[Rfam]
RNA sequence: CUUCAUGAGAUGCCUUCGCCAAGGUCCGACUGGAUGGCACGUCGACCUUACGCUCGUGGGUGGCUCGGAUGACGAAGCGGCCGGCGCCAAGCGGUGACGACGAGAGCGACGC
Number, nucleotide and partner (000 for none) at each position: 001c077002u076003u075004c074005a000006u000007g000008a000009g040010a000011u000012g038013c037014c036015u000016u034017c033018g000019c000020c000021a000022a031023g030024g000025u000026c000027c000028g000029a000030c023031u022032g000033g017034a016035u000036g014037g013038c012039a000040c009041g064042u063043c062044g000045a000046c060047c059048u058049u000050a057051c056052g000053c000054u000055c000056g051057u050058g048059g047060g046061u000062g043063g042064c041065u000066c000067g000068g000069a000070u000071g000072a000073c000074g004075a003076a002077g001078c000079g000080g101081c000082c099083g098084g000085c096086g095087c094088c093089a000090a000091g000092c000093g088094g087095u086096g085097a000098c083099g082100a000101c080102g000103a000104g000105a000106g000107c000108g000109a000110c000111g000112c000
Shown here is a 112-nucleotide sequence, a member of the family "SAM (S-adenosyl methionine) riboswitch aptamer".
Pairs were carried over by alignment from the consensus structure, which is taken from published work.